[Rfam]
RNA sequence: AGUGAGGAUAGAGGCGCAAAGACCAUCAGUAAACCAUCCAAGGGUAAUGGGACCCGUUGACGGUGGCAGAAAGGGGAAUUUGCCGAAGCUUCUGAGGAUCUCAUUGUUCCGGAAGCUGGUUCUGUUAUUGAAUAAAUACAGAAUUGUCAUAUAGGAAACUAUAUGGAGGGCUAUCUCACGC
Numbered sequence: 001a002g003u004g005a006g007g008a009u010a011g012a013g014g015c016g017c018a019a020a021g022a023c024c025a026u027c028a029g030u031a032a033a034c035c036a037u038c039c040a041a042g043g044g045u046a047a048u049g050g051g052a053c054c055c056g057u058u059g060a061c062g063g064u065g066g067c068a069g070a071a072a073g074g075g076g077a078a079u080u081u082g083c084c085g086a087a088g089c090u091u092c093u094g095a096g097g098a099u100c101u102c103a104u105u106g107u108u109c110c111g112g113a114a115g116c117u118g119g120u121u122c123u124g125u126u127a128u129u130g131a132a133u134a135a136a137u138a139c140a141g142a143a144u145u146g147u148c149a150u151a152u153a154g155g156a157a158a159c160u161a162u163a164u165g166g167a168g169g170g171c172u173a174u175c176u177c178a179c180g181c
Base pairs, nucleotide, nucleotide: 006176007175008174009173010172011171016083017082018081019080020079023076024075034066035065036064037063038062087117088116089115090114091113092112093111094110096108097107118145119144120143121142122141123140124139126138127137128136129135147166148165149164150163151162152161153160

Rfam assigns this 181-nucleotide RNA sequence from Neobacillus rhizophilus to the family "Lysine riboswitch aptamer". The match comes from Rfam's covariance-model search (111 bits). Pairs were carried over by alignment from the consensus structure, which is taken from published work. Rfam's curators write: Riboswitches are metabolite binding domains within certain messenger RNAs that serve as precision sensors for their corresponding targets.